[Rfam]
RNA sequence: GUGCAAUGAUGCAUUCUAUUCAUCAACACAUCAUUCUGAAAAGACAGGUGUGUAGAAAGUUAAUGACUGAGCACG
Numbered sequence: 001g002u003g004c005a006a007u008g009a010u011g012c013a014u015u016c017u018a019u020u021c022a023u024c025a026a027c028a029c030a031u032c033a034u035u036c037u038g039a040a041a042a043g044a045c046a047g048g049u050g051u052g053u054a055g056a057a058a059g060u061u062a063a064u065g066a067c068u069g070a071g072c073a074c075g
Stems, first nucleotide, its partner, number of pairs: 001074004
The family of this 75-nucleotide sequence from Myotis lucifugus is "Small nucleolar RNA SNORD63". Taxonomically the source falls in Myotis (Eukaryota, Craniata, Tetrapoda, Mammalia). On this family, see Galardi et al., Mol Cell Biol 2002: "Purified box C/D snoRNPs are able to reproduce site-specific 2'-O-methylation of target RNA in vitro". The family's RNA type in Rfam is C/D-box small nucleolar RNA.